[Rfam]
Nucleotides: 163
Stems, first nucleotide, its partner, number of pairs: 001127001004123002007120001010116004015111002020107009030097003035092004132155010
Number, partner (000 for none) and nucleotide at each position: 001127g002000c003000c004123c005122g006000u007120c008000g009000c010116u011115a012114c013113u014000a015111c016110c017000g018000a019000u020107u021106g022105a023104a024103u025102g026101g027100c028099u029000c030097g031096g032095u033000g034000a035092g036091g037090c038089c039000u040000u041000c042000g043000g044000a045000c046000u047000g048000g049000c050000u051000c052000a053000g054000g055000g056000g057000a058000g059000u060000u061000g062000g063000c064000a065000a066000c067000g068000a069000c070000c071000c072000c073000c074000c075000a076000g077000a078000g079000c080000c081000g082000g083000a084000a085000a086000g087000u088000u089038g090037g091036u092035c093000a094000a095032a096031c097030c098000c099028g100027g101026u102025c103024a104023u105022u106021u107020a108000g109000a110016g111015g112000a113013a114012g115011u116010a117000a118000a119000a120007g121000u122005c123004g124000u125000a126000a127001c128000a129000a130000g131000g132155u133154u134153u135152c136151c137150g138149u139148a140147g141146g142000u143000g144000a145000a146141c147140c148139u149138g150137c151136g152135g153134a154133a155132g156000g157000a158000u159000c160000a161000u162000u163000a